[Rfam]
RNA sequence: CAGUAUUGUAGCCAAUGAGGCUUAUCCAAGGCACAAUUAUUGCUAAUCGAAAACUUUUCCCAAUACCCCGCCAUGACGACUUGAAAUAUAGUGAGCAAUGGCAAUUUUUUACAGUCUCUACGGAGG
Numbered sequence: 001c002a003g004u005a006u007u008g009u010a011g012c013c014a015a016u017g018a019g020g021c022u023u024a025u026c027c028a029a030g031g032c033a034c035a036a037u038u039a040u041u042g043c044u045a046a047u048c049g050a051a052a053a054c055u056u057u058u059c060c061c062a063a064u065a066c067c068c069c070g071c072c073a074u075g076a077c078g079a080c081u082u083g084a085a086a087u088a089u090a091g092u093g094a095g096c097a098a099u100g101g102c103a104a105u106u107u108u109u110u111a112c113a114g115u116c117u118c119u120a121c122g123g124a125g126g
Stems, first nucleotide, its partner, number of pairs: 005037005011032003019027002070102003074097002079092003115126004
Dot-bracket structure: ....(((((.(((.....((.....))..))))))))................................(((.((...(((........)))...))..)))............((((....))))
The family of this 126-nucleotide sequence from Cebus imitator is "U4 spliceosomal RNA". Taxonomically the source falls in Cebus (Eukaryota, Eumetazoa, Eutheria, Boreoeutheria). A search with the family's covariance model found it, with a score of 76 bits. The base pairs follow the family's consensus structure, which is taken from published work. Rfam describes the family as follows. U4 small nuclear RNA (U4 snRNA) is a component of the major U2-dependent spliceosome. It is annotated as a spliceosomal small nuclear RNA.